[Rfam]
Notes
Lysine riboswitch aptamer: a 174-nucleotide RNA from bacterium 1xD42-87. The family's consensus secondary structure is taken from published work. A search with the family's covariance model found it, with a score of 101 bits.
RNA sequence: AAGUUUGAUAGAGGUUGCGUUAUCUAUCAGUACAGGCAUGGAUGUGACAGGCACAGGGGAAAUGCCCGGAAAGGAGAGAGCGCCGAAAGGGGAGACGACCUGUAAGUUUUUACCUUGGGCAUACAGUUAAGAGCUGUAUGACUGUCAUCGUAACGAUGGGGCGCUAUCCAGACC
Numbered sequence: 001a002a003g004u005u006u007g008a009u010a011g012a013g014g015u016u017g018c019g020u021u022a023u024c025u026a027u028c029a030g031u032a033c034a035g036g037c038a039u040g041g042a043u044g045u046g047a048c049a050g051g052c053a054c055a056g057g058g059g060a061a062a063u064g065c066c067c068g069g070a071a072a073g074g075a076g077a078g079a080g081c082g083c084c085g086a087a088a089g090g091g092g093a094g095a096c097g098a099c100c101u102g103u104a105a106g107u108u109u110u111u112a113c114c115u116u117g118g119g120c121a122u123a124c125a126g127u128u129a130a131g132a133g134c135u136g137u138a139u140g141a142c143u144g145u146c147a148u149c150g151u152a153a154c155g156a157u158g159g160g161g162c163g164c165u166a167u168c169c170a171g172a173c174c
Stems, first nucleotide, its partner, number of pairs: 007168005017083005023077003033068001035066005087116004092111004096106001117143002120140008145159006